[Rfam]
Nucleotides: 100
Base pairs, nucleotide, nucleotide: 001100002099003098004097005096006095007094
Number, partner (000 for none) and nucleotide at each position: 001100u002099u003098u004097g005096g006095g007094a008000a009000a010000u011000g012000a013000u014000g015000c016000u017000a018000a019000a020000u021000g022000a023000u024000a025000u026000c027000g028000a029000a030000u031000u032000u033000u034000g035000u036000u037000a038000c039000c040000a041000u042000a043000g044000g045000c046000g047000c048000a049000u050000u051000u052000u053000u054000g055000u056000g057000c058000u059000c060000u061000g062000c063000u064000g065000a066000a067000c068000g069000a070000a071000a072000u073000c074000u075000u076000a077000u078000u079000u080000g081000c082000a083000c084000g085000u086000c087000a088000g089000u090000c091000u092000g093000a094007u095006c096005c097004u098003a099002a100001a